[Rfam]
The record is a 91-nucleotide RNA sequence from Georgenia satyanarayanai, which matches "Glycine riboswitch aptamer" in Rfam.
RNA sequence: CCACCCGCGGCGGGAGAGUCCCGCCCUGCGCGGGCGCCGAAGGAGCAAGCCCUCCCGCUAAUCUCUCAGGCCCCGGUACCGCCGCGAUCAG
Numbered sequence: 001c002c003a004c005c006c007g008c009g010g011c012g013g014g015a016g017a018g019u020c021c022c023g024c025c026c027u028g029c030g031c032g033g034g035c036g037c038c039g040a041a042g043g044a045g046c047a048a049g050c051c052c053u054c055c056c057g058c059u060a061a062u063c064u065c066u067c068a069g070g071c072c073c074c075g076g077u078a079c080c081g082c083c084g085c086g087a088u089c090a091g
Stems, first nucleotide, its partner, number of pairs: 006086008020034004036071003039067002043065003049058002